[Rfam]
RNA sequence: CCGGCGGACACAAGUUCGUGCGGACACUGUCAUCGGUACCUGAUACGGCCGGUGCAG
Numbered sequence: 001c002c003g004g005c006g007g008a009c010a011c012a013a014g015u016u017c018g019u020g021c022g023g024a025c026a027c028u029g030u031c032a033u034c035g036g037u038a039c040c041u042g043a044u045a046c047g048g049c050c051g052g053u054g055c056a057g
Base pairs, nucleotide, nucleotide: 001023002022003021004019005018006017007016008015027057028056029055031054032053033052034051035050036049037048

Background: L17-Actino-Proteobacteria ribosomal protein leader: a 57-nucleotide sequence from Streptomyces sp. LaPpAH-202. The sequence is in the family's curated seed alignment.